[Rfam]
RNA sequence: UUCGACGCCUCUGGAAAGCGGUGGUCGCGAGCCACCCGCCCAUGGUGAAAGGGACACGGCCCCAAAGCCGCUGCCCCGAAUCUCUCAGGCGCCCAGGACAGAGGGGGAGGG
Numbered sequence: 001u002u003c004g005a006c007g008c009c010u011c012u013g014g015a016a017a018g019c020g021g022u023g024g025u026c027g028c029g030a031g032c033c034a035c036c037c038g039c040c041c042a043u044g045g046u047g048a049a050a051g052g053g054a055c056a057c058g059g060c061c062c063c064a065a066a067g068c069c070g071c072u073g074c075c076c077c078g079a080a081u082c083u084c085u086c087a088g089g090c091g092c093c094c095a096g097g098a099c100a101g102a103g104g105g106g107g108a109g110g111g
Stems, first nucleotide, its partner, number of pairs: 006106001008104006020036004038090003042085001045084001047082001051077002